[Rfam]
RNA sequence: GACGCGGCAUGAAAGGAUACUCCCCUUGAAGGAAACACUCGUGAGGGUGGAGUACGAAAGGGGAUUACCGGUGUCGCGUCGUUCGUCUUGAAGCAUGA
Dot-bracket structure: ((((((((((....((....(((((((...(....(((((....))))).....)..)))))))...)).))))))))))..((((........))))